Small nucleolar RNA SNORD19: a 76-nucleotide sequence from Podargus strigoides.
The family has 22 seed sequences and 1,431 matches in Rfam 15.1.
It is annotated as a C/D-box small nucleolar RNA.
NCBI's taxonomy places the organism under Eukaryota, Tetrapoda, Theropoda, Coelurosauria, Podargus.
The match comes from Rfam's covariance-model search (37 bits).
RNA sequence: GAAAAAUGAAGAUAUUCUGACUGCUUCCUAUUAUUACAGUGAAGACCUCAGAUCCAACUCUGAUUUCACUCUAAUU
Numbered sequence: 001g002a003a004a005a006a007u008g009a010a011g012a013u014a015u016u017c018u019g020a021c022u023g024c025u026u027c028c029u030a031u032u033a034u035u036a037c038a039g040u041g042a043a044g045a046c047c048u049c050a051g052a053u054c055c056a057a058c059u060c061u062g063a064u065u066u067c068a069c070u071c072u073a074a075u076u
Base pairs, nucleotide, nucleotide: 001067002066003065004064
Overview:
The literature on the family includes a 2001 paper in EMBO J by Huttenhofer et al., "RNomics: an experimental approach that identifies 201 candidates for novel, small, non-messenger RNAs in mouse".